This 60-nucleotide sequence from Pristionchus pacificus belongs to the Rfam family "mir-8364 microRNA precursor family". Lineage of the source: Eukaryota > Opisthokonta > Ecdysozoa > Nematoda > Pristionchus. Rfam links the family to the GO terms RISC complex and miRNA-mediated post-transcriptional gene silencing.
RNA sequence: UCUUCAUUCCGCGUGCUGUCUCACUGGUCAGAAAGGCGAGAGAGCAUGCGAAAUGAAGAG
Number, nucleotide and partner (000 for none) at each position: 001u059002c058003u057004u056005c055006a054007u053008u000009c000010c050011g000012c048013g047014u046015g045016c044017u043018g000019u041020c040021u039022c038023a000024c000025u000026g000027g000028u000029c000030a000031g000032a000033a000034a000035g000036g000037c000038g022039a021040g020041a019042g000043a017044g016045c015046a014047u013048g012049c000050g010051a000052a000053a007054u006055g005056a004057a003058g002059a001060g000